[Rfam]
RNA sequence: AAUAGUCUUUGGGGCAAGGUGAGAAAGCAGGGCUUUCAAUUCCUGACCGGCGGUAGAGUCCGCUAACUCCUUAUCAGGAGCUGAACCGAUGGGAUUUCGGUACCGACAGUAUAGUCUGGAUGGGAAAAGACGGCA
Dot-bracket structure: ..(.((((((......(((......................))).[[((((((....[[))))...((..........))....(((((.......)))))]])).(((....]]))).......)))))).)..
The record is a 135-nucleotide RNA sequence from Megasphaera sp. AM44-1BH, which matches "FMN riboswitch aptamer (RFN element)" in Rfam. It scores 92 bits against the family's covariance model.